[Rfam]
RNA sequence: AUAAGGUUUUGUUAGGUGAGGUUCCUGCAAUAAACAUAGGCUAUUGCCCGGAAACAUCGAGAGAUGCCAAUGGGUAGGACAGGUUUUAUCGAAAUAAGGUAUUACCCGAGAUAGCUGAGUAUUUAUACUCUACGUUAUGCAGUGCUAAAACUUGGACGAUUAAAAGAUUAC
Numbered sequence: 001a002u003a004a005g006g007u008u009u010u011g012u013u014a015g016g017u018g019a020g021g022u023u024c025c026u027g028c029a030a031u032a033a034a035c036a037u038a039g040g041c042u043a044u045u046g047c048c049c050g051g052a053a054a055c056a057u058c059g060a061g062a063g064a065u066g067c068c069a070a071u072g073g074g075u076a077g078g079a080c081a082g083g084u085u086u087u088a089u090c091g092a093a094a095u096a097a098g099g100u101a102u103u104a105c106c107c108g109a110g111a112u113a114g115c116u117g118a119g120u121a122u123u124u125a126u127a128c129u130c131u132a133c134g135u136u137a138u139g140c141a142g143u144g145c146u147a148a149a150a151c152u153u154g155g156a157c158g159a160u161u162a163a164a165a166g167a168u169u170a171c
Stems, first nucleotide, its partner, number of pairs: 007165004011157002013097001015152003020146003025142005031137003040115005046075005055066004082106003088100003117130003
Shown here is a 171-nucleotide sequence from Pectinatus cerevisiiphilus, a member of the family "M-box riboswitch aptamer (ykoK leader)". NCBI's taxonomy places the organism under Bacteria, Bacillota, Negativicutes, Selenomonadales, Pectinatus. It scores 146 bits against the family's covariance model. Rfam 15.1 lists 1,095 matches to the family in 932 species.